Shown here is a 73-nucleotide sequence from Rhodobacter sp. 24-YEA-8, a member of the family "Singlet oxygen resistance RNA X". For this family Rfam cites "Regulation of a polyamine transporter by the conserved 3' UTR-derived sRNA SorX confers resistance to singlet oxygen and organic hydroperoxides in Rhodobacter sphaeroides" (Peng et al., RNA Biol, 2016).
[Rfam]
RNA sequence: CCCCUUGUCGUGUCGGGGUUAUGACACGACAACCUCCCUGUUGGACUGGCCGGGCUUUUGCCCGGCCUUUUUU
Numbered sequence: 001c002c003c004c005u006u007g008u009c010g011u012g013u014c015g016g017g018g019u020u021a022u023g024a025c026a027c028g029a030c031a032a033c034c035u036c037c038c039u040g041u042u043g044g045a046c047u048g049g050c051c052g053g054g055c056u057u058u059u060g061c062c063c064g065g066c067c068u069u070u071u072u073u
Stems, first nucleotide, its partner, number of pairs: 008029007048067008
Rfam links the family to the GO term response to photooxidative stress. The organism belongs to Rhodobacter, within Bacteria. It scores 77 bits against the family's covariance model. SorX (RSs2461)like SorY is a singlet oxygen induced sRNA that counteracts oxidative stress by targeting mRNA for a transporter in Rhodobacter.